Rfam assigns this 80-nucleotide RNA sequence from Paspalum vaginatum to the family "Plastid-rpl20 3UTR RNA". Taxonomically the source falls in Paspalum (Eukaryota, Streptophytina, Liliopsida, Petrosaviidae). About the family: Plastid rpl20 is a non-coding RNA (ncRNA) recognised in plastids.
[Rfam]
Nucleotides: 080
Base pairs, nucleotide, nucleotide: 007030008029009028010027011026012025013024014023015022063076064075065074066073
Number, partner (000 for none) and nucleotide at each position: 001000c002000c003000u004000g005000a006000a007030u008029u009028c010027u011026c012025g013024g014023a015022g016000a017000g018000g019000g020000a021000a022015c023014u024013c025012c026011g027010g028009g029008a030007a031000g032000a033000u034000a035000c036000a037000a038000u039000a040000a041000a042000u043000u044000a045000a046000g047000a048000u049000u050000a051000a052000a053000u054000g055000g056000u057000a058000g059000g060000a061000a062000u063076c064075g065074a066073c067000c068000a069000a070000c071000a072000u073066g074065u075064u076063g077000c078000a079000a080000u
The family's consensus secondary structure was predicted with LocARNA.